[Rfam]
RNA sequence: UCCUCAUCCAGAGAGGCGGAGGGACCGGCCCGAUGAAGCCUCGGCAACCCGUUUCGCCUCUCGCUUCGGAGGCGGGACACGGUGCCAAUUCCGGUGGGGCACUAGGGUCCCUGAAGAUGAGGA
Numbered sequence: 001u002c003c004u005c006a007u008c009c010a011g012a013g014a015g016g017c018g019g020a021g022g023g024a025c026c027g028g029c030c031c032g033a034u035g036a037a038g039c040c041u042c043g044g045c046a047a048c049c050c051g052u053u054u055c056g057c058c059u060c061u062c063g064c065u066u067c068g069g070a071g072g073c074g075g076g077a078c079a080c081g082g083u084g085c086c087a088a089u090u091c092c093g094g095u096g097g098g099g100c101a102c103u104a105g106g107g108u109c110c111c112u113g114a115a116g117a118u119g120a121g122g123a
Stems, first nucleotide, its partner, number of pairs: 001123008013042005021031003025094004043086004048082002051078011090115001096111005
Shown here is a 123-nucleotide sequence from Planifilum fulgidum, a member of the family "SAM riboswitch aptamer (S box leader)". Lineage of the source: Bacteria > Bacillati > Caryophanales > Thermoactinomycetaceae > Planifilum. Rfam's curators write: The SAM riboswitch is found upstream of a number of genes which code for proteins involved in methionine or cysteine biosynthesis in Gram-positive bacteria.